[Rfam]
RNA: MIR390 microRNA precursor family
RNA sequence: UGGGAUAACCUGUAAAGCUCAGGAGGGAUAGCGCCAUCUCAAAAAAAAAAAAAAACCCCUAUAUAUGGCGCUAUCUAUCCUGAGUUUCAUGGGUUCUUCCU
Number, nucleotide and partner (000 for none) at each position: 001u000002g000003g000004g000005a000006u000007a000008a000009c000010c092011u000012g000013u000014a000015a000016a086017g085018c084019u083020c082021a081022g080023g079024a078025g000026g076027g075028a074029u073030a072031g071032c070033g069034c068035c067036a000037u000038c000039u000040c000041a000042a000043a000044a000045a000046a000047a000048a000049a000050a000051a000052a000053a000054a000055a000056c000057c000058c000059c000060u000061a000062u000063a000064u000065a000066u000067g035068g034069c033070g032071c031072u030073a029074u028075c027076u026077a000078u024079c023080c022081u021082g020083a019084g018085u017086u016087u000088c000089a000090u000091g000092g010093g000094u000095u000096c000097u000098u000099c000100c000101u000